This 93-nucleotide RNA sequence from Amphibalanus amphitrite belongs to the Rfam family "mir-210 microRNA precursor family".
For this family Rfam cites "Kaposi's sarcoma-associated herpesvirus expresses an array of viral microRNAs in latently infected cells" (Cai et al., Proc Natl Acad Sci U S A, 2005).
The family has 26 seed sequences and 790 matches in Rfam 15.1.
Taxonomically the source falls in Amphibalanus (Eukaryota, Protostomia, Arthropoda, Thecostraca).
Pairs were carried over by alignment from the consensus structure, which was predicted with WAR.
[Rfam]
RNA sequence: GACGCCAGCACUUCAGCUGCUGGACGCAGCACAAGAGAUGACCGAGCUCUUGUGCGUGUGACAACAGCUAUUGUGUUGGCGUCUGGCGUCGAG
Number, nucleotide and partner (000 for none) at each position: 001g000002a000003c000004g000005c079006c078007a077008g076009c075010a074011c073012u000013u000014c000015a069016g068017c067018u066019g065020c000021u063022g062023g000024a000025c058026g057027c000028a000029g055030c054031a053032c052033a051034a000035g049036a048037g000038a000039u000040g000041a000042c000043c000044g000045a000046g000047c000048u036049c035050u000051u033052g032053u031054g030055c029056g000057u026058g025059u000060g000061a000062c022063a021064a000065c019066a018067g017068c016069u015070a000071u000072u000073g011074u010075g009076u008077u007078g006079g005080c000081g000082u000083c000084u000085g000086g000087c000088g000089u000090c000091g000092a000093g000